[Rfam]
RNA sequence: GAAACGAAAAGGCAAAAUUAUCGUGAGAUAAUGGCGCAAAGCUAUAGGGUCUUAUAUGUCGGUAUAAGAUAGCCAGUUACCGAA
Dot-bracket structure: ...........((...((((((....))))))...))..((((...(((((.....((....))...)))..))))))......
RNA: c-di-GMP-I riboswitch aptamer
Organism: Clostridia bacterium